[Rfam]
RNA sequence: GUUGCACGAAAUCUGGCCUAACGGCCAUAGGCUGGUGGUUAAAUAACCACCAGCCU
Numbered sequence: 001g002u003u004g005c006a007c008g009a010a011a012u013c014u015g016g017c018c019u020a021a022c023g024g025c026c027a028u029a030g031g032c033u034g035g036u037g038g039u040u041a042a043a044u045a046a047c048c049a050c051c052a053g054c055c056u
Stems, first nucleotide, its partner, number of pairs: 014027005030055010
The record is a 56-nucleotide sequence from Idiomarina sp. MD25a, which matches "Pseudomonas sRNA P26" in Rfam. The base pairs follow the family's consensus structure, which was predicted with RNAalifold. The match comes from Rfam's covariance-model search (40 bits). This small RNA (sRNA) was computationally identified in the genome of the opportunistic pathogen Pseudomonas aeruginosa and its expression verified by northern blot analysis. P26 is conserved across many Gammaproteobacteria species and appears to be consistently located between the DNA directed RNA polymerase (beta subunit) and 50S ribosomal protein L7/L12 genes. Rfam classes the family as a non-coding RNA gene. On this family, see Livny et al., Nucleic Acids Res 2006: "Identification of 17 Pseudomonas aeruginosa sRNAs and prediction of sRNA-encoding genes in 10 diverse pathogens using the bioinformatic tool sRNAPredict2". The source organism's lineage runs through Bacteria, Pseudomonadota, Gammaproteobacteria, Idiomarinaceae and Idiomarina.